[Rfam]
A member of the RNA family "Pseudomonas sRNA P9", 77 nucleotides long.
Rfam classes the family as a non-coding RNA gene.
On this family, see Livny et al., Nucleic Acids Res 2006: "Identification of 17 Pseudomonas aeruginosa sRNAs and prediction of sRNA-encoding genes in 10 diverse pathogens using the bioinformatic tool sRNAPredict2".
From the family's description: This small RNA (sRNA) was computationally identified in the genome of the opportunistic pathogen Pseudomonas aeruginosa and its expression verified by northern blot analysis. P9 appears to be conserved in several Pseudomonas species in addition to Bordetella spp. In both Pseudomonas and Bordetella spp P9 appears to be located upstream of a predicted threonine dehydratase gene. P9 has a predicted Rho independent terminator at the 3' end but the function of P9 is unknown. This sRNA also appears to be present in the Betaproteobacteria (Burkholderia and Ralstonia species).
Nucleotides: 077
Stems, first nucleotide, its partner, number of pairs: 011031007055076009
Number, partner (000 for none) and nucleotide at each position: 001000a002000a003000a004000a005000u006000u007000a008000u009000u010000a011031u012030c013029a014028c015027c016026c017025u018000u019000c020000u021000c022000c023000a024000g025017a026016g027015g028014g029013u030012g031011g032000g033000a034000u035000a036000g037000c038000g039000c040000g041000u042000g043000u044000g045000u046000c047000g048000c049000c050000a051000a052000u053000a054000a055076a056075a057074a058073c059072c060071c061070g062069c063068c064000g065000g066000c067000a068063g069062g070061c071060g072059g073058g074057u075056u076055u077000u